[Rfam]
RNA sequence: UGAUAUUUUAUCUUGGCACUGGGAGAAUUCACAGUUGAUUAUAUAAUAUUCUGUGGUUCUGCAGGUGCCAAAAUGUAAUAUGC
Numbered sequence: 001u002g003a004u005a006u007u008u009u010a011u012c013u014u015g016g017c018a019c020u021g022g023g024a025g026a027a028u029u030c031a032c033a034g035u036u037g038a039u040u041a042u043a044u045a046a047u048a049u050u051c052u053g054u055g056g057u058u059c060u061g062c063a064g065g066u067g068c069c070a071a072a073a074u075g076u077a078a079u080a081u082g083c
Stems, first nucleotide, its partner, number of pairs: 003081005009075002013071006020064001022062001023060001025059003029056006